[Rfam]
RNA sequence: AAGCGCAUUUGUCGGCGGGGGGAUACGUUGGCAAUUGCGCAUUGCUUUCGACUUGUGACCACGGAUGUACUGGCACGAGUUUUGAGAGCGAAAAGACAGAAGGCCGGGGCCAACGUGCCUCGGCCUUUUUUU
Numbered sequence: 001a002a003g004c005g006c007a008u009u010u011g012u013c014g015g016c017g018g019g020g021g022g023a024u025a026c027g028u029u030g031g032c033a034a035u036u037g038c039g040c041a042u043u044g045c046u047u048u049c050g051a052c053u054u055g056u057g058a059c060c061a062c063g064g065a066u067g068u069a070c071u072g073g074c075a076c077g078a079g080u081u082u083u084g085a086g087a088g089c090g091a092a093a094a095g096a097c098a099g100a101a102g103g104c105c106g107g108g109g110c111c112a113a114c115g116u117g118c119c120u121c122g123g124c125c126u127u128u129u130u131u132u
Stems, first nucleotide, its partner, number of pairs: 003040004007035003013030005043090005050081004056075002059073003094131002098129010109118002
Overview:
Alphaproteobacterial sRNA ar35: a 132-nucleotide RNA from Ensifer meliloti. Pairs were carried over by alignment from the consensus structure. Taxonomically the source falls in Ensifer meliloti (Bacteria, Alphaproteobacteria, Hyphomicrobiales, Rhizobiaceae). Rfam's curators put it in the seed alignment. By type it is a small RNA.